Rfam assigns this 93-nucleotide RNA sequence from Anoxybacter fermentans to the family "pan motif".

RNA sequence: GGAAAUCUACUCGUUGGAGAGAUUAUCCGUUUUACAAAUAUUUUUUUAUUUAAUCACAUACGCCUGGAUCUGUUUAUGGACCGGGACGGAAGA
Numbered sequence: 001g002g003a004a005a006u007c008u009a010c011u012c013g014u015u016g017g018a019g020a021g022a023u024u025a026u027c028c029g030u031u032u033u034a035c036a037a038a039u040a041u042u043u044u045u046u047u048a049u050u051u052a053a054u055c056a057c058a059u060a061c062g063c064c065u066g067g068a069u070c071u072g073u074u075u076a077u078g079g080a081c082c083g084g085g086a087c088g089g090a091a092g093a
Stems, first nucleotide, its partner, number of pairs: 001028003004024005010019002061088002063085005069080003